[Rfam]
RNA sequence: CGUGUGGUGUCUGACUCCGGGUUGGAUAGCGACACGGCCUGAUAAUUGAGGU
Numbered sequence: 001c002g003u004g005u006g007g008u009g010u011c012u013g014a015c016u017c018c019g020g021g022u023u024g025g026a027u028a029g030c031g032a033c034a035c036g037g038c039c040u041g042a043u044a045a046u047u048g049a050g051g052u
Base pairs, nucleotide, nucleotide: 001036002035003034004033005032007030008029011025012024013023014022015021
Dot-bracket structure: (((((.((..(((((.....)))))...)).)))))................
The family of this 52-nucleotide RNA from Neiella litorisoli is "L31-Gammaproteobacteria ribosomal protein leader". On this family, see Eckert and Weinberg, BMC Microbiol 2020: "Discovery of 20 novel ribosomal leader candidates in bacteria and archaea".